[Rfam]
RNA: Tryptophan operon leader
Organism: Shewanella violacea
RNA sequence: AUCAAUUGGUGGUGGCACUUCCCAACUUAGCGGGUGGUGUGAAAUUCUGUGCUCAUGUAAAAGAGACUAGAUUCAACAAGAAGCCCGCACAAGAUGCGGGCUUUUUUGU
Numbered sequence: 001a002u003c004a005a006u007u008g009g010u011g012g013u014g015g016c017a018c019u020u021c022c023c024a025a026c027u028u029a030g031c032g033g034g035u036g037g038u039g040u041g042a043a044a045u046u047c048u049g050u051g052c053u054c055a056u057g058u059a060a061a062a063g064a065g066a067c068u069a070g071a072u073u074c075a076a077c078a079a080g081a082a083g084c085c086c087g088c089a090c091a092a093g094a095u096g097c098g099g100g101c102u103u104u105u106u107u108g109u
Stems, first nucleotide, its partner, number of pairs: 009052003015040005021034003082102007